[Rfam]
Nucleotides: 076
Stems, first nucleotide, its partner, number of pairs: 001026002005024002008021005039046002048076003057069005
Number, partner (000 for none) and nucleotide at each position: 001026c002025a003000a004000g005024g006023u007000c008021a009020u010019g011018u012017a013000g014000u015000g016000a017012u018011a019010c020009a021008u022000a023006a024005c025002u026001g027000c028000c029000u030000c031000c032000g033000c034000a035000g036000a037000a038000g039046u040045c041000a042000g043000c044000a045040g046039a047000g048076g049075c050074c051000a052000u053000a054000g055000u056000a057069c058068u059067u060066u061065u062000u063000u064000u065061a066060g067059a068058a069057g070000g071000a072000a073000g074050g075049g076048c

The family of this 76-nucleotide RNA from Pedobacter sp. MC2016-24 is "Group II catalytic intron D1-D4-1".
NCBI's taxonomy places the organism under Bacteria, Sphingobacteriia, Sphingobacteriales, Sphingobacteriaceae, Pedobacter.
The family has 237 seed sequences and 2,508 matches in Rfam 15.1.
Group II introns are found in rRNA, tRNA and mRNA of organelles in fungi, plants and protists, and also in mRNA in bacteria.
The pairing is the family consensus, mapped onto this sequence.
A search with the family's covariance model found it, with a score of 60 bits.